[Rfam]
RNA: mir-8/mir-141/mir-200 microRNA precursor family
RNA sequence: GUGGCAUCAUACCGGACAGCAUUAGACGUGGCGAUCAGCGGGCUCUAAUACUGUCUGGUAAUGAUGUUAAU
Number, nucleotide and partner (000 for none) at each position: 001g000002u069003g068004g067005c066006a065007u064008c063009a000010u060011a059012c058013c057014g056015g055016a054017c053018a052019g051020c000021a049022u048023u047024a046025g045026a044027c000028g000029u000030g000031g000032c000033g000034a000035u000036c000037a000038g000039c000040g000041g000042g000043c000044u026045c025046u024047a023048a022049u021050a000051c019052u018053g017054u016055c015056u014057g013058g012059u011060a010061a000062u000063g008064a007065u006066g005067u004068u003069a002070a000071u000